[Rfam]
RNA: Iron response element I
Organism: Odobenus rosmarus
RNA sequence: GGGUCUUUUGCUUCAACAGUGUUUGGAUGGAACAU
Numbered sequence: 001g002g003g004u005c006u007u008u009u010g011c012u013u014c015a016a017c018a019g020u021g022u023u024u025g026g027a028u029g030g031a032a033c034a035u
Stems, first nucleotide, its partner, number of pairs: 001035001003033002006031003010028001012027005017021001